[Rfam]
Rfam assigns this 110-nucleotide sequence from Ectobacillus ponti to the family "SAM riboswitch aptamer (S box leader)". Pairs were carried over by alignment from the consensus structure, which is taken from published work. It scores 93 bits against the family's covariance model. Rfam links the family to the GO term regulation of gene expression. NCBI's taxonomy places the organism under Bacteria, Bacillati, Bacillota, Bacillaceae, Ectobacillus.

RNA sequence: CUCUUAUCGAGAGCGGCAGAGGGAAAGGCCCUAUGAAGCCCGGCAACCUUCAGAUGAUGAUCUGAAACGGUGCUAAUACCUGCGGAACAUGAUGUUUUGCAUGAUAAGAG
Numbered sequence: 001c002u003c004u005u006a007u008c009g010a011g012a013g014c015g016g017c018a019g020a021g022g023g024a025a026a027g028g029c030c031c032u033a034u035g036a037a038g039c040c041c042g043g044c045a046a047c048c049u050u051c052a053g054a055u056g057a058u059g060a061u062c063u064g065a066a067a068c069g070g071u072g073c074u075a076a077u078a079c080c081u082g083c084g085g086a087a088c089a090u091g092a093u094g095u096u097u098u099g100c101a102u103g104a105u106a107a108g109a110g
Stems, first nucleotide, its partner, number of pairs: 001110008013041001015040003021031003026081003042074004047070002049066004078102001083099006